This 128-nucleotide RNA from Otolemur garnettii belongs to the Rfam family "Small nucleolar RNA SNORA77". The family's RNA type in Rfam is H/ACA-box small nucleolar RNA. Rfam links the family to the GO terms RNA processing and nucleolus. The family's consensus secondary structure was predicted with RNAalifold. ACA63 (SNORA77) is a member of the H/ACA class of snoRNAs that guide the sites of modification of uridines to pseudouridines. This snoRNA was identified by computational screening and its expression in mouse experimentally verified by Northern blot and primer extension analysis. ACA63 is proposed to guide the pseudouridylation of 18S rRNA U814.

[Rfam]
RNA sequence: GCAGACUCACUCUGCAUCCGCCUGCAGCCCCAAGGCGGGUGCUUUUUCAGUCUGCCAGAGAAAUAGUCCAGGUGCUGCAGCUGUCUGACCCACUGUCAAGGGCAGUGCAGCUGCCUGGGGACACGGGU
Numbered sequence: 001g002c003a004g005a006c007u008c009a010c011u012c013u014g015c016a017u018c019c020g021c022c023u024g025c026a027g028c029c030c031c032a033a034g035g036c037g038g039g040u041g042c043u044u045u046u047u048c049a050g051u052c053u054g055c056c057a058g059a060g061a062a063a064u065a066g067u068c069c070a071g072g073u074g075c076u077g078c079a080g081c082u083g084u085c086u087g088a089c090c091c092a093c094u095g096u097c098a099a100g101g102g103c104a105g106u107g108c109a110g111c112u113g114c115c116u117g118g119g120g121a122c123a124c125g126g127g128u
Stems, first nucleotide, its partner, number of pairs: 001055006014042007022034001023032002067119007074111006082104005
The source organism's lineage runs through Eukaryota, Sarcopterygii, Tetrapoda, Amniota and Otolemur. A reference for the family is Schattner et al. (2006), "A computational screen for mammalian pseudouridylation guide H/ACA RNAs", RNA.